[Rfam]
RNA sequence: GGGAGCGGAUGCGAACCUGGUGGUCGCCCCGGUCUUCAAAACCGAGUGGGGGGCACGUGCUGUCCCUGGUGGGUUCGAUUCCCACACGCUCCC
Numbered sequence: 001g002g003g004a005g006c007g008g009a010u011g012c013g014a015a016c017c018u019g020g021u022g023g024u025c026g027c028c029c030c031g032g033u034c035u036u037c038a039a040a041a042c043c044g045a046g047u048g049g050g051g052g053g054c055a056c057g058u059g060c061u062g063u064c065c066c067u068g069g070u071g072g073g074u075u076c077g078a079u080u081c082c083c084a085c086a087c088g089c090u091c092c093c
Stems, first nucleotide, its partner, number of pairs: 001093007008085001011027003015024003028046001030044004048067005070084004

Description:
A member of the RNA family "Selenocysteine transfer RNA" from Caldalkalibacillus thermarum, 93 nucleotides long. It scores 74 bits against the family's covariance model.